[Rfam]
RNA sequence: CCCUGACCGGUGGGGCCACGCGAGUGGAAAGCCGGGAGCGGAUAAGCCAUGAGUGCCGCGCAUGCAAAAACCAUGGCAGCC
Number, nucleotide and partner (000 for none) at each position: 001c015002c014003c013004u012005g000006a000007c035008c034009g033010g032011u031012g004013g003014g002015g001016c000017c026018a025019c024020g000021c000022g000023a000024g019025u018026g017027g000028a000029a000030a000031g011032c010033c009034g008035g007036g000037a000038g059039c058040g057041g056042a000043u000044a000045a000046g077047c076048c075049a074050u073051g000052a000053g000054u000055g000056c041057c040058g039059c038060g000061c000062a000063u000064g000065c000066a000067a000068a000069a000070a000071c000072c000073a050074u049075g048076g047077c046078a000079g000080c000081c000

Annotation
The record is an 81-nucleotide RNA, which matches "Proteo-phage-1 RNA" in Rfam. Pairs were carried over by alignment from the consensus structure, which is taken from published work.